A member of the RNA family "Group II catalytic intron D1-D4-3" from Dyadobacter luteus, 174 nucleotides long. Group II introns are found in rRNA, tRNA and mRNA of organelles in fungi, plants and protists, and also in mRNA in bacteria. Lineage of the source: Bacteria > Pseudomonadati > Bacteroidota > Cytophagia > Dyadobacter. It scores 147 bits against the family's covariance model.

[Rfam]
Nucleotides: 174
Stems, first nucleotide, its partner, number of pairs: 001016006028174001030172001036165001040160006046151005062146006073138003077134007085113004091106004
Number, partner (000 for none) and nucleotide at each position: 001016u002015u003014u004013a005012c006011u007000g008000u009000g010000a011006g012005g013004u014003a015002a016001a017000a018000u019000c020000u021000g022000a023000a024000g025000g026000a027000a028174g029000c030172u031000g032000g033000a034000g035000g036165c037000a038000a039000a040160u041159a042158u043157u044156c045155g046151a047150a048149c049148c050147u051000a052000c053000g054000g055000a056000c057000a058000g059000a060000a061000a062146c063145u064144u065143c066142a067141u068000a069000g070000g071000a072000g073138g074137c075136g076000u077134u078133g079132c080131u081130a082129c083128a084000a085113g086112g087111g088110u089000g090000a091106u092105g093104u094103u095000g096000c097000a098000c099000a100000a101000g102000a103094a104093a105092c106091a107000a108000a109000a110088g111087c112086c113085c114000a115000a116000u117000a118000c119000u120000g121000c122000a123000c124000g125000g126000a127000u128083u129082g130081u131080a132079g133078c134077g135000g136075c137074g138073u139000a140000a141067a142066u143065g144064a145063a146062g147050a148049g149048g150047u151046u152000a153000c154000c155045u156044g157043a158042a159041u160040a161000g162000a163000a164000a165036g166000a167000u168000a169000a170000a171000g172030a173000a174028c